Shown here is an 81-nucleotide RNA from Naegleria lovaniensis, a member of the family "tRNA". Lineage of the source: Eukaryota > Tetramitia > Acrasida > Naegleriidae > Naegleria. It is annotated as a transfer RNA. Pairs were carried over by alignment from the consensus structure, which is taken from published work.

RNA sequence: GGAAGAGUGACCGAGUGGUUAUGGUGCCAGAUUCAGGUUCUGGUGGUUCGCGCCUCCCGGGUUCAAAUCCCGGCUCUUUCA
Numbered sequence: 001g002g003a004a005g006a007g008u009g010a011c012c013g014a015g016u017g018g019u020u021a022u023g024g025u026g027c028c029a030g031a032u033u034c035a036g037g038u039u040c041u042g043g044u045g046g047u048u049c050g051c052g053c054c055u056c057c058c059g060g061g062u063u064c065a066a067a068u069c070c071c072g073g074c075u076c077u078u079u080c081a
Stems, first nucleotide, its partner, number of pairs: 001080007010025004027043005057073005